[Rfam]
RNA: Glycine riboswitch aptamer
Organism: Nitrobacter sp. Nb-311A
RNA sequence: UUAGUCGCGCCGGGAGAGAUCGGCCGCUUUCUGAAUGGGGAAGCAGGCCGGCGCCGAAGGAGCAACCGCCCCGGAAACUCUCAGGCAAACGGACCGCGCGACUGG
Numbered sequence: 001u002u003a004g005u006c007g008c009g010c011c012g013g014g015a016g017a018g019a020u021c022g023g024c025c026g027c028u029u030u031c032u033g034a035a036u037g038g039g040g041a042a043g044c045a046g047g048c049c050g051g052c053g054c055c056g057a058a059g060g061a062g063c064a065a066c067c068g069c070c071c072c073g074g075a076a077a078c079u080c081u082c083a084g085g086c087a088a089a090c091g092g093a094c095c096g097c098g099c100g101a102c103u104g105g
Base pairs, nucleotide, nucleotide: 005101006100007099008098009097011096012095013094020051021050022049023048024047025046053086054085055084056082057081060080061079062078066074067073